[Rfam]
RNA sequence: CAACGUUCACUUCAUCCUUGGGUGAAGCGCAGUACGACUCAGGCCAUGGAACGGGGACCUGAG
Numbered sequence: 001c002a003a004c005g006u007u008c009a010c011u012u013c014a015u016c017c018u019u020g021g022g023u024g025a026a027g028c029g030c031a032g033u034a035c036g037a038c039u040c041a042g043g044c045c046a047u048g049g050a051a052c053g054g055g056g057a058c059c060u061g062a063g
Base pairs, nucleotide, nucleotide: 004053005052006051007050008049010027011026012025013024014023038063039062040061041060042059043058044056045055
The family of this 63-nucleotide sequence is "Glutamine-II riboswitch aptamer".
For this family Rfam cites "Structure and ligand binding of the glutamine-II riboswitch" (Huang et al., Nucleic Acids Res, 2019).